This 142-nucleotide sequence from Mus spicilegus belongs to the Rfam family "Small nucleolar RNA SNORA38". Rfam classes the family as an H/ACA-box small nucleolar RNA. Rfam's curators write: ACA38 is a member of the H/ACA class of snoRNA that guide the sites of modification of uridines to pseudouridines. Its family is annotated with RNA processing, Cajal body and nucleolus in the Gene Ontology.
RNA sequence: UCCUCCUACAAACGUGUGUUUUUGUUCUCUGUCCUUGGACAUGUAAGAAUUGGAGACAAAGAAACGUGGUAGAUUUGGGUCUGGGACCAGCUUGUCUCCCCCCCUCCCACCACACACACACAGGAUCAACCAUCCCACAGAG
Numbered sequence: 001u002c003c004u005c006c007u008a009c010a011a012a013c014g015u016g017u018g019u020u021u022u023u024g025u026u027c028u029c030u031g032u033c034c035u036u037g038g039a040c041a042u043g044u045a046a047g048a049a050u051u052g053g054a055g056a057c058a059a060a061g062a063a064a065c066g067u068g069g070u071a072g073a074u075u076u077g078g079g080u081c082u083g084g085g086a087c088c089a090g091c092u093u094g095u096c097u098c099c100c101c102c103c104c105u106c107c108c109a110c111c112a113c114a115c116a117c118a119c120a121c122a123g124g125a126u127c128a129a130c131c132a133u134c135c136c137a138c139a140g141a142g
Base pairs, nucleotide, nucleotide: 003055004054005053006052015043016042017041018040019039020038021037024029068135069134073133075132090119093116094115095114